[Rfam]
RNA sequence: GCGGUCAUGGCGGAAUGGCAGACGCGCCAGCUUGAGGGGCUGGUGGGAGAAAUCCCGUGGAGGUUCAAGUCCUCUUGGCCGCA
Dot-bracket structure: (((((((..(((..........))).(((((.......)))))...............(((((.......)))))))))))).